[Rfam]
RNA sequence: GUUUCCUUUACUCCUUAUCGUUCCCGCGCCCAGCUGCCAUGUUUGAAUAAUGCUGGACGGAGAACUGAUAAGGGCUUAUGGGAAC
Numbered sequence: 001g002u003u004u005c006c007u008u009u010a011c012u013c014c015u016u017a018u019c020g021u022u023c024c025c026g027c028g029c030c031c032a033g034c035u036g037c038c039a040u041g042u043u044u045g046a047a048u049a050a051u052g053c054u055g056g057a058c059g060g061a062g063a064a065c066u067g068a069u070a071a072g073g074g075c076u077u078a079u080g081g082g083a084a085c
Stems, first nucleotide, its partner, number of pairs: 012074009021064003025060001029056002
A member of the RNA family "mir-184 microRNA precursor family" from Patiria miniata, 85 nucleotides long. Gene Ontology terms of the family: gene silencing by miRNA and RISC complex. The family has 66 seed sequences and 948 matches in Rfam 15.1. NCBI's taxonomy places the organism under Eukaryota, Bilateria, Asterozoa, Valvatida, Patiria.